[Rfam]
RNA sequence: UUCUCGCCAUCUAUGGCACUAUUAGAAUUCACGGUUGUUUUCGUUCGUGUUUGAACGCACUUCAUGACCGUGACUUCUUUAGUGCUAUAUAUGGCGAGAA
Number, nucleotide and partner (000 for none) at each position: 001u000002u000003c098004u097005c096006g095007c094008c093009a092010u091011c000012u000013a088014u087015g086016g085017c084018a083019c000020u081021a080022u000023u000024a000025g076026a075027a000028u000029u073030c072031a071032c070033g069034g068035u067036u066037g065038u064039u000040u000041u000042c000043g000044u000045u000046c000047g000048u000049g000050u000051u000052u000053g000054a000055a000056c000057g000058c000059a000060c000061u000062u000063c000064a038065u037066g036067a035068c034069c033070g032071u031072g030073a029074c000075u026076u025077c000078u000079u000080u021081a020082g000083u018084g017085c016086u015087a014088u013089a000090u000091a010092u009093g008094g007095c006096g005097a004098g003099a000100a000